[Rfam]
RNA sequence: GCCGCCCAGGUCAAGUGGUCCUAAACAUUUCACAAUUUCGAUAGAGAACUGUUGAACUGAUUAGAACCACUGCACCAGGG
Numbered sequence: 001g002c003c004g005c006c007c008a009g010g011u012c013a014a015g016u017g018g019u020c021c022u023a024a025a026c027a028u029u030u031c032a033c034a035a036u037u038u039c040g041a042u043a044g045a046g047a048a049c050u051g052u053u054g055a056a057c058u059g060a061u062u063a064g065a066a067c068c069a070c071u072g073c074a075c076c077a078g079g080g
Base pairs, nucleotide, nucleotide: 014071015070016069017068018067019066021064022063024061026059027058029056030055031054032053
RNA: mir-203 microRNA precursor family
Organism: Callorhinchus milii